[Rfam]
Nucleotides: 082
Base pairs, nucleotide, nucleotide: 001082002081003080004079
Number, partner (000 for none) and nucleotide at each position: 001082g002081u003080g004079c005000u006000a007000u008000g009000a010000u011000g012000a013000c014000a015000u016000u017000c018000c019000a020000u021000a022000g023000u024000g025000g026000u027000u028000u029000c030000a031000u032000c033000a034000a035000a036000c037000u038000g039000a040000u041000a042000a043000u044000u045000u046000a047000a048000u049000g050000a051000g052000a053000a054000c055000a056000c057000u058000a059000a060000a061000u062000u063000c064000c065000u066000u067000g068000g069000c070000u071000g072000u073000a074000u075000c076000u077000g078000a079004g080003c081002a082001c